[Rfam]
RNA sequence: ACCACCUGGGGAUCUUGUUAAACUGAAUAUUCUGAUUCAGUAGGUCCAGGGUGGGGUCUGAGAUUCUGCGUUUGUAACAAGCUCCCAGGUGAUGCCAA
Numbered sequence: 001a002c003c004a005c006c007u008g009g010g011g012a013u014c015u016u017g018u019u020a021a022a023c024u025g026a027a028u029a030u031u032c033u034g035a036u037u038c039a040g041u042a043g044g045u046c047c048a049g050g051g052u053g054g055g056g057u058c059u060g061a062g063a064u065u066c067u068g069c070g071u072u073u074g075u076a077a078c079a080a081g082c083u084c085c086c087a088g089g090u091g092a093u094g095c096c097a098a
Stems, first nucleotide, its partner, number of pairs: 003091003009085003014081007021073002025069001027067001029065001031063003